[Rfam]
RNA sequence: CCAGUGAGAACCAUUUGAAUCAAGUGGUGUAUGAUUCAAAUGGUUCUUUCAA
Number, nucleotide and partner (000 for none) at each position: 001c000002c000003a000004g050005u000006g048007a047008g046009a045010a044011c043012c042013a041014u040015u039016u038017g037018a036019a035020u034021c033022a032023a000024g000025u000026g000027g000028u000029g000030u000031a000032u022033g021034a020035u019036u018037c017038a016039a015040a014041u013042g012043g011044u010045u009046c008047u007048u006049u000050c004051a000052a000

Rfam assigns this 52-nucleotide RNA sequence from Nyssa sinensis to the family "Plastid-ccsA-ndhD-2 3UTR RNA". A search with the family's covariance model found it, with a score of 53 bits. The literature on the family includes a 2023 paper in Plant Commun by Richter et al., "Retrograde signaling in plants: A critical review focusing on the GUN pathway and beyond". Plastid ccsA-ndhD-2 is a non-coding RNA (ncRNA) recognised in plastids. The source organism's lineage runs through Eukaryota, Viridiplantae, Spermatophyta, Magnoliopsida and Nyssa.